[Rfam]
RNA sequence: GUAAUGUUUCUUGCUUAAAUGAGUAUUCCAUAUGCAGACAACGUAACCACCGUUUUCUAGAAACGAUGUCGAUGAUGAUACCUUGUCAUAUGUUGCUCAGGAGAUUGUCGAUUAUGGAUACUCAUUUGUGCAAGAAACGUUAC
Numbered sequence: 001g002u003a004a005u006g007u008u009u010c011u012u013g014c015u016u017a018a019a020u021g022a023g024u025a026u027u028c029c030a031u032a033u034g035c036a037g038a039c040a041a042c043g044u045a046a047c048c049a050c051c052g053u054u055u056u057c058u059a060g061a062a063a064c065g066a067u068g069u070c071g072a073u074g075a076u077g078a079u080a081c082c083u084u085g086u087c088a089u090a091u092g093u094u095g096c097u098c099a100g101g102a103g104a105u106u107g108u109c110g111a112u113u114a115u116g117g118a119u120a121c122u123c124a125u126u127u128g129u130g131c132a133a134g135a136a137a138c139g140u141u142a143c
Stems, first nucleotide, its partner, number of pairs: 004140005010134005016128012029116004

Shown here is a 143-nucleotide RNA sequence from Apium graveolens, a member of the family "MIR828 microRNA precursor family". NCBI's taxonomy places the organism under Eukaryota, Euphyllophyta, Pentapetalae, Apiineae, Apium. Rfam links the family to the GO terms miRNA-mediated post-transcriptional gene silencing and RISC complex. For this family Rfam cites "A diverse and evolutionarily fluid set of microRNAs in Arabidopsis thaliana" (Rajagopalan et al., Genes Dev, 2006).